[Rfam]
RNA sequence: CGUCUCCUCCAAUCUCCUCCUAAAGAAAUUGGAUUCAGCCCGCGCCGAAAGGCCAGCGGGCUUUUUUUU
Numbered sequence: 001c002g003u004c005u006c007c008u009c010c011a012a013u014c015u016c017c018u019c020c021u022a023a024a025g026a027a028a029u030u031g032g033a034u035u036c037a038g039c040c041c042g043c044g045c046c047g048a049a050a051g052g053c054c055a056g057c058g059g060g061c062u063u064u065u066u067u068u069u
Stems, first nucleotide, its partner, number of pairs: 008033005013026002037062007
The record is a 69-nucleotide RNA from Oxalobacteraceae bacterium CAVE-383, which matches "Betaproteobacteria toxic small RNA" in Rfam. For this family Rfam cites "A vast collection of microbial genes that are toxic to bacteria" (Kimelman et al., Genome Res, 2012).